RNA sequence: AGAUUUGCUGAUGCAGCAUCAUCAAGAUUCUCAUAUUCAUAUAUAAGGAAGGGCCACCGUAGCUCCGCUGUGGAGUUGUGAAUCUUGAUGGUGCUGCAUCCGCCAAUAC
Number, nucleotide and partner (000 for none) at each position: 001a000002g000003a000004u000005u000006u000007g000008c000009u000010g100011a099012u098013g097014c096015a095016g094017c093018a092019u091020c090021a089022u088023c087024a086025a085026g084027a083028u082029u081030c080031u000032c078033a077034u000035a000036u000037u000038c000039a000040u000041a000042u000043a000044u000045a000046a000047g000048g000049a000050a000051g000052g000053g000054c000055c000056a000057c000058c000059g000060u000061a000062g000063c000064u000065c000066c000067g000068c000069u000070g000071u000072g000073g000074a000075g000076u000077u033078g032079u000080g030081a029082a028083u027084c026085u025086u024087g023088a022089u021090g020091g019092u018093g017094c016095u015096g014097c013098a012099u011100c010101c000102g000103c000104c000105a000106a000107u000108a000109c000
RNA: mir-172 microRNA precursor family